[Rfam]
RNA: L31-Gammaproteobacteria ribosomal protein leader
Organism: Algicola sagamiensis
RNA sequence: CGUAUGGUGUUCGGCUUAGGAUCGAAUAGCGAUACGGCCUGAAAAAGAGGU
Numbered sequence: 001c002g003u004a005u006g007g008u009g010u011u012c013g014g015c016u017u018a019g020g021a022u023c024g025a026a027u028a029g030c031g032a033u034a035c036g037g038c039c040u041g042a043a044a045a046a047g048a049g050g051u
Stems, first nucleotide, its partner, number of pairs: 001036005007030002011025004015020001